[Rfam]
RNA sequence: AUAUCGAAGAGAGGUCGCAAGUGAUAUCAGUAACUGUUUUCAGAUGGUAAAGCAUCGUUUAAAAACAGUGAAAGGAGAGCUUGCCGAAGCAAGUGCUGCUUUAACAGCACUGUGUUGGGCUCCUGUUUAAAAGACUGGAGACUGUCGCGAAUUUCGCGGAGAGCUAUCGAGUAU
Dot-bracket structure: .......(.((.....((((((..(.......((((((((.....................))))))))......)..))))))...(((((((((((......))))))).))))((.((((.(((.....))).)))).)).((((((...))))))....)).).......